The family of this 68-nucleotide RNA from Dechloromonas sp. TW-R-39-2 is "SAH (S-adenosyl-L-homocysteine) riboswitch aptamer".
RNA sequence: UCUGCCGAGGAGCGCUGCGACCCUGAGAUGGGGCCAGGCUCGGCAAUGAUCAACGGCGCUCGCAAACC
Numbered sequence: 001u002c003u004g005c006c007g008a009g010g011a012g013c014g015c016u017g018c019g020a021c022c023c024u025g026a027g028a029u030g031g032g033g034c035c036a037g038g039c040u041c042g043g044c045a046a047u048g049a050u051c052a053a054c055g056g057c058g059c060u061c062g063c064a065a066a067c068c
Stems, first nucleotide, its partner, number of pairs: 003045006021033005
A search with the family's covariance model found it, with a score of 61 bits.
The source organism's lineage runs through Bacteria, Pseudomonadati, Betaproteobacteria, Azonexaceae and Dechloromonas.